[Rfam]
RNA sequence: GAGAAUGUAUAGUGGGGCUACGAACUGAGUGCGCUUAGUCACUCUAUCCAAUGUCCCUUGGGAAGGUCUGAGACUAGGGCCAUAGAGCGGCCCUAACAGGGCCCUCCCUGAGCUUCGGGGAGGUGAGUUCCCAGAGAACGGGCUCCGUGCAAGGGUAGACUGGGCAGGAGAUGCCAUGGACCCCACCCUUGCGGAGGGGCCUGGCGGAUGCCUCCUUAGCCAGAGCUUGGAACAGACUGACGGCCAGCGAAGUGAGUUCAAUGGCUGAGGUGAGGUACCCUGCGUGGGGGCCUCAUAACCCAAUUCAGACUACUCUCCC
Numbered sequence: 001g002a003g004a005a006u007g008u009a010u011a012g013u014g015g016g017g018c019u020a021c022g023a024a025c026u027g028a029g030u031g032c033g034c035u036u037a038g039u040c041a042c043u044c045u046a047u048c049c050a051a052u053g054u055c056c057c058u059u060g061g062g063a064a065g066g067u068c069u070g071a072g073a074c075u076a077g078g079g080c081c082a083u084a085g086a087g088c089g090g091c092c093c094u095a096a097c098a099g100g101g102c103c104c105u106c107c108c109u110g111a112g113c114u115u116c117g118g119g120g121a122g123g124u125g126a127g128u129u130c131c132c133a134g135a136g137a138a139c140g141g142g143c144u145c146c147g148u149g150c151a152a153g154g155g156u157a158g159a160c161u162g163g164g165c166a167g168g169a170g171a172u173g174c175c176a177u178g179g180a181c182c183c184c185a186c187c188c189u190u191g192c193g194g195a196g197g198g199g200c201c202u203g204g205c206g207g208a209u210g211c212c213u214c215c216u217u218a219g220c221c222a223g224a225g226c227u228u229g230g231a232a233c234a235g236a237c238u239g240a241c242g243g244c245c246a247g248c249g250a251a252g253u254g255a256g257u258u259c260a261a262u263g264g265c266u267g268a269g270g271u272g273a274g275g276u277a278c279c280c281u282g283c284g285u286g287g288g289g290g291c292c293u294c295a296u297a298a299c300c301c302a303a304u305u306c307a308g309a310c311u312a313c314u315c316u317c318c319c
Base pairs, nucleotide, nucleotide: 001317002316006268010264014058015057016056017055027044028043029042030041031040032038068308069307070306071305072304078245079244080243081242089103090102091101092100093099104122105121106120107119108118109117123241124240126238127237128236129235142226143225144224270296271295272294273293274292275291276290
Rfam assigns this 319-nucleotide sequence from Cervus elaphus to the family "Nuclear RNase P".
From the family's description: Ribonuclease P (RNase P) is a ubiquitous endoribonuclease, found in archaea, bacteria and eukarya as well as chloroplasts and mitochondria.
Its Rfam clan is "RNaseP clan".
The match comes from Rfam's covariance-model search (221 bits).